The record is a 63-nucleotide sequence from Mytilus galloprovincialis, which matches "Selenocysteine insertion sequence 1" in Rfam. Rfam links the family to the GO term selenocysteine incorporation. Lineage of the source: Eukaryota > Eumetazoa > Mytilida > Mytilidae > Mytilus.
RNA sequence: UAUAUUUUAUGAUGGUAUGAUUCUAAACCCCUAACGUGAGGGAUUGUACUUGAUUUUCAUAUA
Numbered sequence: 001u002a003u004a005u006u007u008u009a010u011g012a013u014g015g016u017a018u019g020a021u022u023c024u025a026a027a028c029c030c031c032u033a034a035c036g037u038g039a040g041g042g043a044u045u046g047u048a049c050u051u052g053a054u055u056u057u058c059a060u061a062u063a
Stems, first nucleotide, its partner, number of pairs: 001063005014050010029038001031036001
Record summary
By type it is a cis-regulatory element.